[Rfam]
Background:
The record is a 102-nucleotide RNA sequence from Clostridium sp. D5, which matches "pemK RNA" in Rfam. It is annotated as a cis-regulatory element.
RNA sequence: AUAAUGAUACUCCCGUCCAGUCACAGCCCGUGCGUUCAGAGCGUCCCAGGCAAUGAGGGCGGCAGCCAGAGAACCUGGCUGGGGAGGCAAGGCAUCUCGUGG
Dot-bracket structure: ...........(((((((......................................))))))(((.(((.....))).)))(((...........))))...
Taxonomically the source falls in Clostridium (Bacteria, Bacillati, Clostridia, Eubacteriales). It scores 44 bits against the family's covariance model.